[Rfam]
RNA: Small nucleolar RNA SNORD97
Organism: Malurus cyaneus
RNA sequence: UUGCCCAAUGAUUAUAGCAAGACGCGUUAUUAUGAGGACUAAUGCUGGAACUCUUUCUCCUCCUCCUUCUUCUCCUUCUUUGUCCCUUCCUCUUUCACCCCGCACGCUUUCCUCAGGGUAUCCAGCGUCCUAUGAGCAAGACUGAAAUAUGAGGGCAA
Numbered sequence: 001u002u003g004c005c006c007a008a009u010g011a012u013u014a015u016a017g018c019a020a021g022a023c024g025c026g027u028u029a030u031u032a033u034g035a036g037g038a039c040u041a042a043u044g045c046u047g048g049a050a051c052u053c054u055u056u057c058u059c060c061u062c063c064u065c066c067u068u069c070u071u072c073u074c075c076u077u078c079u080u081u082g083u084c085c086c087u088u089c090c091u092c093u094u095u096c097a098c099c100c101c102g103c104a105c106g107c108u109u110u111c112c113u114c115a116g117g118g119u120a121u122c123c124a125g126c127g128u129c130c131u132a133u134g135a136g137c138a139a140g141a142c143u144g145a146a147a148u149a150u151g152a153g154g155g156c157a158a
Base pairs, nucleotide, nucleotide: 001158002157003156004155005154006153035054036053037052040049